[Rfam]
RNA: Bacterial small subunit ribosomal RNA, nucleotides 1 to 546
Organism: uncultured bacterium
RNA sequence: CAAGCUUAGAGUUUGAUCAUGGCUCAGGACGAACGCUGGCGGUGCGCCUUAUGCAUGCAAGUCGAGCGAAGCUUUUCAGUAGUUUACUACAGAAAAUGACUGAGCGGCGAACGGGUGAGUAACGCGUGAGCAAUCUACCUUAGUUACAGGGAUAGCCCGAGGAAACUCGGAUUAAUACCUGAUAUUCUUUAUUUCUCGCAUGAGAAUAAAAGGAAAGGUCAGCCGAACUAAGAUGAGCUCGCGUUCUAUCAGCUAGUUGGUGAGGUAAAAGCUUACCAAGGCUACGACGGAUAGCUGGUCUGAGAGGACGAUCAGCCACACUGGGACUGAGACACGGCCCAGACUCCUACGGGAGGCUGCAGCAGGGAAUAUUGUGCAAUGAACGAAAGUUUGACACAGCGACACCGCGUGUGGGAUGACGGAUCUAGGUUUGUAAACCACUUUCAGGAGGGAAGAAAAUGACGGUACCUCCACAAGAAGCCCCGGCCAACUACGUGCCAGCAGCCGCGGUAAUACGUAGGGGGCGAGCGUUGUCCGGAUUUAUUG
Number, nucleotide and partner (000 for none) at each position: 001c000002a000003a000004g000005c000006u000007u000008a000009g025010a024011g023012u022013u021014u000015g000016a000017u000018c000019a000020u000021g013022g012023c011024u010025c009026a000027g536028g535029a534030c533031g000032a532033a531034c530035g529036c528037u527038g000039g408040c407041g406042g405043u404044g403045c401046g400047c366048c000049u000050u000051a000052u364053g363054c362055a000056u361057g360058c359059a000060a000061g108062u107063c106064g000065a000066g105067c104068g000069a101070a000071g000072c000073u000074u000075u000076u093077c092078a000079g090080u089081a088082g087083u000084u000085u000086a000087c082088u081089a080090c079091a000092g077093a076094a000095a000096a000097u000098g000099a000100c000101u069102g000103a000104g067105c066106g063107g062108c061109g000110a000111a000112c000113g000114g000115g319116u318117g317118a000119g000120u000121a000122a000123c000124g244125c243126g242127u241128g240129a239130g238131c237132a000133a000134u236135c235136u000137a000138c000139c232140u231141u230142a229143g228144u227145u226146a000147c181148a180149g179150g178151g000152a000153u000154a000155g172156c000157c170158c169159g168160a167161g166162g000163a000164a000165a000166c161167u160168c159169g158170g157171a000172u155173u000174a000175a000176u000177a000178c150179c149180u148181g147182a000183u000184a000185u000186u000187c212188u211189u210190u209191a000192u000193u206194u000195c204196u203197c202198g000199c000200a000201u000202g197203a196204g195205a000206a193207u000208a000209a190210a189211a188212g187213g000214a000215a000216a000217g224218g223219u000220c000221a000222g000223c218224c217225g000226a145227a144228c143229u142230a141231a140232g139233a000234u000235g135236a134237g131238c130239u129240c128241g127242c126243g125244u124245u291246c290247u289248a000249u000250c000251a000252g282253c281254u280255a000256g000257u279258u278259g277260g276261u275262g274263a273264g272265g000266u000267a000268a000269a000270a000271g000272c264273u263274u262275a261276c260277c259278a258279a257280g254281g253282c252283u000284a000285c000286g000287a000288c000289g247290g246291a245292u000293a000294g316295c315296u314297g313298g309299u308300c307301u306302g000303a000304g000305a000306g301307g300308a299309c298310g000311a000312u000313c297314a296315g295316c294317c117318a116319c115320a000321c342322u341323g340324g339325g338326a000327c000328u000329g000330a000331g000332a000333c000334a000335c000336g000337g000338c325339c324340c323341a322342g321343a000344c355345u354346c353347c352348u000349a000350c000351g000352g347353g346354a345355g344356g000357c000358u000359g058360c057361a056362g054363c053364a052365g000366g047367g000368a000369a000370u000371a000372u398373u000374g397375u396376g395377c000378a000379a000380u393381g392382a391383a390384c389385g000386a000387a000388a000389g384390u383391u382392u381393g380394a000395c376396a375397c374398a372399g000400c046401g045402a000403c044404a043405c042406c041407g040408c039409g000410u000411g441412u440413g439414g438415g000416a000417u000418g000419a000420c000421g432422g431423a430424u429425c000426u000427a000428g000429g424430u423431u422432u421433g000434u000435a000436a000437a000438c414439c413440a412441c411442u000443u000444u000445c477446a000447g472448g471449a470450g469451g468452g000453a000454a000455g463456a000457a000458a000459a000460u000461g000462a000463c455464g000465g000466u000467a000468c451469c450470u449471c448472c447473a000474c000475a000476a000477g445478a000479a000480g525481c524482c523483c522484c521485g000486g000487c000488c000489a000490a000491c520492u519493a518494c517495g516496u000497g000498c000499c000500a000501g508502c507503a000504g000505c000506c000507g502508c501509g000510g000511u000512a000513a000514u000515a000516c495517g494518u493519a492520g491521g484522g483523g482524g481525c480526g000527a037528g036529c035530g034531u033532u032533g030534u029535c028536c027537g000538g000539a000540u000541u000542u000543a000544u000545u000546g000